[Rfam]
RNA sequence: AUCUCCUCAGAUUCUACGUUUCACGUAGCCCCGUCACGGUUGCCGAAAGGCAAGGGAUUCAUGACAGACUUAUGAUUUAUCAUAAACGUGGUAAAGCCGUACCUGAGCACGUCUGAUGUCAUGU
Numbered sequence: 001a002u003c004u005c006c007u008c009a010g011a012u013u014c015u016a017c018g019u020u021u022c023a024c025g026u027a028g029c030c031c032c033g034u035c036a037c038g039g040u041u042g043c044c045g046a047a048a049g050g051c052a053a054g055g056g057a058u059u060c061a062u063g064a065c066a067g068a069c070u071u072a073u074g075a076u077u078u079a080u081c082a083u084a085a086a087c088g089u090g091g092u093a094a095a096g097c098c099g100u101a102c103c104u105g106a107g108c109a110c111g112u113c114u115g116a117u118g119u120c121a122u123g124u
Stems, first nucleotide, its partner, number of pairs: 006107005033102002036100004040053005060123007070085006086112005

Overview
Rfam assigns this 124-nucleotide sequence from Aneurinibacillus danicus to the family "EGFOA RNA". Rfam classes the family as a small RNA.